[Rfam]
This 79-nucleotide sequence from Parnassius apollo belongs to the Rfam family "Mammalian CPEB3 ribozyme". The family's consensus secondary structure is taken from published work. The source organism's lineage runs through Eukaryota, Eumetazoa, Arthropoda, Obtectomera and Parnassius. It scores 54 bits against the family's covariance model. Rfam's curators write: The mammalian CPEB3 ribozyme is a self cleaving RNA located in the second intron of the CPEB3 gene which belongs to a family of genes regulating messenger RNA polyadenylation.

RNA sequence: GUAUGAUACCUGGGGGUCAUUGUAGAAGCGUGCUCGUCGCGACCCCCUGCCAGCCCUUUUUCAGGGCUGCGAUUCUACA
Numbered sequence: 001g002u003a004u005g006a007u008a009c010c011u012g013g014g015g016g017u018c019a020u021u022g023u024a025g026a027a028g029c030g031u032g033c034u035c036g037u038c039g040c041g042a043c044c045c046c047c048u049g050c051c052a053g054c055c056c057u058u059u060u061u062c063a064g065g066g067c068u069g070c071g072a073u074u075c076u077a078c079a
Base pairs, nucleotide, nucleotide: 013047014046015044016043017042018041021079022078023077024076025075026074027073028040029039030038051069052068053067054066055065056064057063